This 107-nucleotide RNA sequence from Arthrobacter sp. Leaf69 belongs to the Rfam family "Glycine riboswitch aptamer". It scores 40 bits against the family's covariance model. Lineage of the source: Bacteria > Bacillati > Actinomycetes > Micrococcaceae > Arthrobacter.
RNA sequence: CAACUCUGGAAAGCAGUCCGGAUAUUCGGACUCACCGACGGUGCAAGGGUCACCCUGCUAACAGCAGGGGGCGCGGAAACUCUCAGGUCCAAUACAGAGCGGGGAGG
Numbered sequence: 001c002a003a004c005u006c007u008g009g010a011a012a013g014c015a016g017u018c019c020g021g022a023u024a025u026u027c028g029g030a031c032u033c034a035c036c037g038a039c040g041g042u043g044c045a046a047g048g049g050u051c052a053c054c055c056u057g058c059u060a061a062c063a064g065c066a067g068g069g070g071g072c073g074c075g076g077a078a079a080c081u082c083u084c085a086g087g088u089c090c091a092a093u094a095c096a097g098a099g100c101g102g103g104g105a106g107g
Base pairs, nucleotide, nucleotide: 001102004099005098006097007096008095015032016031017030018029034088035087036086037084038083041082043080048074